Shown here is a 107-nucleotide RNA sequence from Paenisporosarcina sp. HGH0030, a member of the family "TPP riboswitch aptamer (THI element)".
RNA sequence: AAUUUGCACUAGGGGUGCUAUAGUUUGGCUGAGAUGAGAGCAUUUGCUCCGAUCCCUUAACACUCGAUCCAGGUAAUACUGGCGUGAGGAAGUGCGGUGACCUUUGC
Numbered sequence: 001a002a003u004u005u006g007c008a009c010u011a012g013g014g015g016u017g018c019u020a021u022a023g024u025u026u027g028g029c030u031g032a033g034a035u036g037a038g039a040g041c042a043u044u045u046g047c048u049c050c051g052a053u054c055c056c057u058u059a060a061c062a063c064u065c066g067a068u069c070c071a072g073g074u075a076a077u078a079c080u081g082g083c084g085u086g087a088g089g090a091a092g093u094g095c096g097g098u099g100a101c102c103u104u105u106g107c
Base pairs, nucleotide, nucleotide: 006095007094008093009092010091011057012056013055014054016051017029018028019027020026036050038049039048040047041046063088064087065086066085069082070081071080072079
Record summary:
Taxonomically the source falls in Paenisporosarcina (Bacteria, Bacillati, Caryophanales, Caryophanaceae). The match comes from Rfam's covariance-model search (70 bits).